RNA sequence: GACCAACCACAAAUCUAAUCAAAGCGCUCAAGUCGCUUAAAUGGUUAGUCCAGCCUACUUUUUUAAAGUAAACGUUAUUUAGGUCAUAACACCUUGGGGUGCGCGGCCAGCUCCAAGCUCUGUUGUUCGGCAUUAAACAGGUAAAGAGAUUUGAAAAACCAGUGUGUCGAGCUUUUAAAAGCCAAAAUAACUAGGCGAGGCCAACUUUAC
Number, nucleotide and partner (000 for none) at each position: 001g050002a049003c048004c000005a046006a045007c044008c043009a042010c000011a000012a000013a000014u000015c000016u000017a000018a000019u000020c000021a000022a000023a000024g000025c000026g000027c000028u000029c000030a000031a000032g000033u000034c000035g000036c000037u000038u000039a000040a000041a000042u009043g008044g007045u006046u005047a000048g003049u002050c001051c000052a000053g196054c195055c194056u193057a192058c000059u070060u000061u068062u067063u000064u000065a000066a000067a062068g061069u000070a059071a000072a000073c000074g191075u190076u189077a188078u187079u186080u185081a000082g183083g182084u181085c000086a000087u000088a000089a123090c122091a000092c000093c117094u116095u115096g114097g113098g112099g111100u110101g206102c000103g000104c000105g202106g201107c200108c199109a000110g100111c099112u098113c097114c096115a095116a094117g093118c000119u000120c000121u000122g090123u089124u000125g172126u171127u170128c169129g168130g167131c166132a165133u164134u000135a000136a000137a163138c162139a000140g160141g159142u158143a000144a000145a000146g000147a000148g000149a000150u000151u000152u000153g000154a000155a000156a000157a000158a142159c141160c140161a000162g138163u137164g133165u132166g131167u130168c129169g128170a127171g126172c125173u000174u000175u000176u000177a000178a000179a000180a000181g084182c083183c082184a000185a080186a079187a078188u077189a076190a075191c074192u057193a056194g055195g054196c053197g000198a000199g108200g107201c106202c105203a000204a000205c000206u101207u000208u000209a000210c000
Source information: A member of the RNA family "HNH endonuclease-associated RNA and ORF (HEARO) RNA" from Hydrocoleum sp. CS-953, 210 nucleotides long. The source organism's lineage runs through Bacteria, Cyanobacteriota, Oscillatoriophycideae, Microcoleaceae and Hydrocoleum. The base pairs follow the family's consensus structure, which is taken from published work. For this family Rfam cites "Exceptional structured noncoding RNAs revealed by bacterial metagenome analysis" (Weinberg et al., Nature, 2009). It scores 94 bits against the family's covariance model.